[Rfam]
RNA: U7 small nuclear RNA
RNA sequence: AAGUAAUGCUCUUUAAUAUUUAUCCAGAAGGAUCCCUGGUAAAAAGGGAUCCCCA
Numbered sequence: 001a002a003g004u005a006a007u008g009c010u011c012u013u014u015a016a017u018a019u020u021u022a023u024c025c026a027g028a029a030g031g032a033u034c035c036c037u038g039g040u041a042a043a044a045a046g047g048g049a050u051c052c053c054c055a
Base pairs, nucleotide, nucleotide: 030052031051032050033049034048035047036046037045